A member of the RNA family "mir-160 microRNA precursor family" from Brachypodium distachyon, 94 nucleotides long. Gene Ontology terms of the family: RISC complex and miRNA-mediated post-transcriptional gene silencing. The match comes from Rfam's covariance-model search (81 bits). The literature on the family includes a 2002 paper in Cell by Rhoades et al., "Prediction of plant microRNA targets".
[Rfam]
RNA sequence: AUGUGCCUGGCUCCCUGUAUGCCACUCAUCUAUAGCAACAUUCCUUCCUGAUGAGGUUGCCUAGGAUGGAUGGCGUGCACGGAGCCAAGCAUAU
Number, nucleotide and partner (000 for none) at each position: 001a094002u093003g092004u091005g090006c089007c000008u087009g086010g085011c084012u083013c082014c081015c000016u079017g078018u077019a076020u075021g074022c073023c072024a071025c000026u000027c068028a067029u066030c065031u064032a000033u000034a000035g000036c000037a000038a000039c000040a000041u000042u000043c000044c000045u000046u000047c000048c000049u000050g000051a000052u000053g000054a000055g000056g000057u000058u000059g000060c000061c000062u000063a000064g031065g030066a029067u028068g027069g000070a000071u024072g023073g022074c021075g020076u019077g018078c017079a016080c000081g014082g013083a012084g011085c010086c009087a008088a000089g006090c005091a004092u003093a002094u001